[Rfam]
Shown here is a 147-nucleotide RNA from Apophysomyces sp. BC1034, a member of the family "Group II catalytic intron D1-D4-7".

RNA sequence: CCAGGCGUUCCGUCGCCUGUAGCUUACCGGAGCAUGCGGAACUGGUAACGGCUCCGUGUGAAGCCUUCGGGACAAUGUAGCCCGACGUAAGUCGUGUGGAAGCCGUGAGGCGGAAGCAUGUCUGCAAGUGUCGAUGCGGAUGGGGCG
Numbered sequence: 001c002c003a004g005g006c007g008u009u010c011c012g013u014c015g016c017c018u019g020u021a022g023c024u025u026a027c028c029g030g031a032g033c034a035u036g037c038g039g040a041a042c043u044g045g046u047a048a049c050g051g052c053u054c055c056g057u058g059u060g061a062a063g064c065c066u067u068c069g070g071g072a073c074a075a076u077g078u079a080g081c082c083c084g085a086c087g088u089a090a091g092u093c094g095u096g097u098g099g100a101a102g103c104c105g106u107g108a109g110g111c112g113g114a115a116g117c118a119u120g121u122c123u124g125c126a127a128g129u130g131u132c133g134a135u136g137c138g139g140a141u142g143g144g145g146c147g
Stems, first nucleotide, its partner, number of pairs: 002019006028069005033060008042051003084093003094119004103110002121140006

Rfam 15.1 lists 1,296 matches to the family in 705 species. Taxonomically the source falls in Apophysomyces (Eukaryota, Mucoromycotina, Mucoromycetes, Mucorales). The match comes from Rfam's covariance-model search (116 bits). Group II introns are found in rRNA, tRNA and mRNA of organelles in fungi, plants and protists, and also in mRNA in bacteria.